RNA: MAT2A 3'UTR stem loop B
Organism: Ornithorhynchus anatinus
RNA sequence: ACGGGCGCUUGGCACUCUUGCGAUGUCCUACAGAGAAGUCGCGGGGUGGUGCCAGAGGGUCUGU
Numbered sequence: 001a002c003g004g005g006c007g008c009u010u011g012g013c014a015c016u017c018u019u020g021c022g023a024u025g026u027c028c029u030a031c032a033g034a035g036a037a038g039u040c041g042c043g044g045g046g047u048g049g050u051g052c053c054a055g056a057g058g059g060u061c062u063g064u
Base pairs, nucleotide, nucleotide: 001064002063003062004061005060006059008057009056012053016046017045018044019043020042021041022040023039024038025031026030